[Rfam]
RNA: Flavo-1 RNA
Organism: Flavobacterium sp. PL002
RNA sequence: CUACUGCCGCAUGAGGGAUGUAAUGGAAAUCCUUUUUUAUUUUAUUUUUAUAAAAUAAAAAAGAUUGGGAAUGAAAUCCCGACCACGC
Numbered sequence: 001c002u003a004c005u006g007c008c009g010c011a012u013g014a015g016g017g018a019u020g021u022a023a024u025g026g027a028a029a030u031c032c033u034u035u036u037u038u039a040u041u042u043u044a045u046u047u048u049u050a051u052a053a054a055a056u057a058a059a060a061a062a063g064a065u066u067g068g069g070a071a072u073g074a075a076a077u078c079c080c081g082a083c084c085a086c087g088c
Stems, first nucleotide, its partner, number of pairs: 015080003019076001023072002028066004034061012